[Rfam]
This 79-nucleotide sequence from Glycine max belongs to the Rfam family "GmglnB1 5'UTR".

Nucleotides: 079
Base pairs, nucleotide, nucleotide: 006059007058008057009056010055011054012053013052014044015043017041018040019039020038021037023035024034066075067074068073
Number, partner (000 for none) and nucleotide at each position: 001000c002000a003000a004000g005000a006059u007058u008057c009056u010055a011054a012053g013052a014044g015043a016000g017041a018040u019039u020038u021037u022000g023035c024034u025000g026000c027000u028000c029000u030000u031000u032000g033000a034024a035023g036000a037021a038020g039019g040018g041017u042000g043015u044014u045000u046000g047000c048000u049000u050000g051000a052013u053012u054011u055010u056009g057008g058007a059006g060000a061000u062000g063000u064000c065000g066075c067074u068073g069000c070000u071000c072000u073068c074067a075066g076000a077000u078000c079000u
On this family, see Ortega et al., Mol Genet Genomics 2012: "The 5' untranslated region of the soybean cytosolic glutamine synthetase beta1 gene contains prokaryotic translation initiation signals and acts as a translational enhancer in plants". Pairs were carried over by alignment from the consensus structure, which was predicted with RNAfold.